[Rfam]
RNA sequence: CUCUUCUCAAUGAGCUCCUUCCUGCCAACAAAUCUCCGUGGCAGCUGAUGGAUUCGCACGAGAAGGAAAUUAACUGUUCAGUACUGGCAACCUCACAGUGGAGUUCCAUCGACUGUGAUUAGCCACUGCUGUACUACAAGC
Numbered sequence: 001c002u003c004u005u006c007u008c009a010a011u012g013a014g015c016u017c018c019u020u021c022c023u024g025c026c027a028a029c030a031a032a033u034c035u036c037c038g039u040g041g042c043a044g045c046u047g048a049u050g051g052a053u054u055c056g057c058a059c060g061a062g063a064a065g066g067a068a069a070u071u072a073a074c075u076g077u078u079c080a081g082u083a084c085u086g087g088c089a090a091c092c093u094c095a096c097a098g099u100g101g102a103g104u105u106c107c108a109u110c111g112a113c114u115g116u117g118a119u120u121a122g123c124c125a126c127u128g129c130u131g132u133a134c135u136a137c138a139a140g141c
Base pairs, nucleotide, nucleotide: 003065004064005063006062007061008060014057015056016052017051018050022044023043024042025041026040076134077133079131080130081129096115097114098113099112101110
This 141-nucleotide sequence from Sterrhoptilus dennistouni belongs to the Rfam family "Small nucleolar RNA SNORA75". About the family: U23 belongs to the H/ACA class of snoRNAs. snoRNAs bind a number of proteins (including dyskerin, Gar1p and Nop10p in the case of the H/ACA class) to form snoRNP complexes. This class are thought to guide the sites of modification of uridines to pseudouridines by forming direct base pairing interactions with substrate RNAs. Targets include ribosomal and spliceosomal RNAs as well as the Trypanosoma spliced leader RNA (SL RNA) as possibly other, still unknown cellular RNAs. U23 can direct the pseudouridylation of U97 in human 18S rRNA (Bachellerie JP, Ganot, P unpublished data). Gene Ontology terms of the family: nucleolus and RNA processing. Rfam classes the family as an H/ACA-box small nucleolar RNA. The family's consensus secondary structure was predicted with PFOLD. For this family Rfam cites "The family of box ACA small nucleolar RNAs is defined by an evolutionarily conserved secondary structure and ubiquitous sequence elements essential for RNA accumulation" (Ganot et al., Genes Dev, 1997).